[Rfam]
RNA sequence: CGCCGCUCGCACAGAGCGGCGUCUACCCCGGUACCUCGUACGGCCGGAGAGA
Dot-bracket structure: ((((((((.....))))))))(((.(.(((((..........))))).))))